[Rfam]
RNA sequence: GCCGACGUAGCUCAGUUGGUAGAGCAGCUGAUUCGUAAUCAGCAGGUCAACGGUUCAAGUCCGUUCGUCGGCU
Numbered sequence: 001g002c003c004g005a006c007g008u009a010g011c012u013c014a015g016u017u018g019g020u021a022g023a024g025c026a027g028c029u030g031a032u033u034c035g036u037a038a039u040c041a042g043c044a045g046g047u048c049a050a051c052g053g054u055u056c057a058a059g060u061c062c063g064u065u066c067g068u069c070g071g072c073u
Base pairs, nucleotide, nucleotide: 001072002071003070004069005068006067007066010025011024012023013022027043028042029041030040031039049065050064051063052062053061
The family of this 73-nucleotide RNA from Terriglobus roseus is "tRNA". It is annotated as a transfer RNA. For this family Rfam cites "The tertiary structure of tRNA and the development of the genetic code" (Hou, Trends Biochem Sci, 1993). Rfam links the family to the GO term triplet codon-amino acid adaptor activity.